[Rfam]
Shown here is a 339-nucleotide sequence from Venenivibrio stagnispumantis, a member of the family "Bacterial RNase P class A". On this family, see Frank and Pace, Annu Rev Biochem 1998: "Ribonuclease P: unity and diversity in a tRNA processing ribozyme". The family's RNA type in Rfam is ribozyme. The base pairs follow the family's consensus structure, which is taken from published work.
RNA sequence: AUAGCUUCCAGGCAGUCGCGGAAAGCUUUUUAGCUUUCUGAGGAAAGUCCGGACUCCGAAGGACAGGGAGCUGUCUAAAAGGCAGGUGGGGGCAACCUCACAGAUAGGGCCACAGAGAAUAGACAGCCAAUCCGCCUACCUUAUAAGUAGGGUCAUGGAGGCAAUGGUGAAACGGUGGGGUAAGAGCCCACCAGCAGUAGCGGUGACGCUACUGGCUCGGCAACCCUCUCCCGGAGCAAUUCCAAGUAGGAGGGUGGGUGUGUCCGCCUAUACCCUCGGGUAGGAAGCUUAGAGAAAUGACUGCUAAAACAGAAUCCGGCUUACUCGGAAGCUAUGGCU
Numbered sequence: 001a002u003a004g005c006u007u008c009c010a011g012g013c014a015g016u017c018g019c020g021g022a023a024a025g026c027u028u029u030u031u032a033g034c035u036u037u038c039u040g041a042g043g044a045a046a047g048u049c050c051g052g053a054c055u056c057c058g059a060a061g062g063a064c065a066g067g068g069a070g071c072u073g074u075c076u077a078a079a080a081g082g083c084a085g086g087u088g089g090g091g092g093c094a095a096c097c098u099c100a101c102a103g104a105u106a107g108g109g110c111c112a113c114a115g116a117g118a119a120u121a122g123a124c125a126g127c128c129a130a131u132c133c134g135c136c137u138a139c140c141u142u143a144u145a146a147g148u149a150g151g152g153u154c155a156u157g158g159a160g161g162c163a164a165u166g167g168u169g170a171a172a173c174g175g176u177g178g179g180g181u182a183a184g185a186g187c188c189c190a191c192c193a194g195c196a197g198u199a200g201c202g203g204u205g206a207c208g209c210u211a212c213u214g215g216c217u218c219g220g221c222a223a224c225c226c227u228c229u230c231c232c233g234g235a236g237c238a239a240u241u242c243c244a245a246g247u248a249g250g251a252g253g254g255u256g257g258g259u260g261u262g263u264c265c266g267c268c269u270a271u272a273c274c275c276u277c278g279g280g281u282a283g284g285a286a287g288c289u290u291a292g293a294g295a296a297a298u299g300a301c302u303g304c305u306a307a308a309a310c311a312g313a314a315u316c317c318g319g320c321u322u323a324c325u326c327g328g329a330a331g332c333u334a335u336g337g338c339u
Stems, first nucleotide, its partner, number of pairs: 001335009011324001012304006019040009045322003049319005054236004061265004066232005071085005086101001088099004102227002107225002109221003124166002126162003131159004174192006194216001195214008240286004250277006260267002